[Rfam]
RNA: mir-2060 microRNA precursor family
Organism: Branchiostoma floridae
RNA sequence: AUUUACCUGUGUGUGGAUGGCGUUCAGCACCAGGGACAGGUGUGUUUACCUGUGUGUGGAUGGUGUUCAGCACCAGGGAUAGGUGCGUUUGUUU
Numbered sequence: 001a002u003u004u005a006c007c008u009g010u011g012u013g014u015g016g017a018u019g020g021c022g023u024u025c026a027g028c029a030c031c032a033g034g035g036a037c038a039g040g041u042g043u044g045u046u047u048a049c050c051u052g053u054g055u056g057u058g059g060a061u062g063g064u065g066u067u068c069a070g071c072a073c074c075a076g077g078g079a080u081a082g083g084u085g086c087g088u089u090u091g092u093u094u
Base pairs, nucleotide, nucleotide: 004085005084006083007082008081009080010079018075019074020073022071023070024069026067027066028065029064030063031062032061034055036053037052038051039050040049041048042047